RNA sequence: UUAACGGGCAGGCCGACAAUAACGCGACAUCCUGUCGCAUUGUCGGCACUAGCACGUCCUGUGCG
Dot-bracket structure: ...........((((((......(((((.....)))))...))))))....((((.....)))).
RNA: Bacillaceae-1 RNA